[Rfam]
RNA sequence: GACAGGGCAUACAAGGUCCUCGGAAAAACGACCGUGGGGCGACCCACUAGUAGGAAUCCGAGGAAGCCGGUGUUCUGUCGUACGUUUUGAAAAACGA
Numbered sequence: 001g002a003c004a005g006g007g008c009a010u011a012c013a014a015g016g017u018c019c020u021c022g023g024a025a026a027a028a029c030g031a032c033c034g035u036g037g038g039g040c041g042a043c044c045c046a047c048u049a050g051u052a053g054g055a056a057u058c059c060g061a062g063g064a065a066g067c068c069g070g071u072g073u074u075c076u077g078u079c080g081u082a083c084g085u086u087u088u089g090a091a092a093a094a095c096g097a
Base pairs, nucleotide, nucleotide: 001079002078003077004076005075006074007073008072009071010070015068016067019062020061021060022059023058024057029053034047035046036045037044038043083096084095085094

Archaeal large subunit ribosomal RNA: a 97-nucleotide part of an RNA from Halogeometricum borinquense. The family's consensus secondary structure is taken from published work. The literature on the family includes a 2001 paper in Science by Yusupov et al., "Crystal structure of the ribosome at 5.5 A resolution".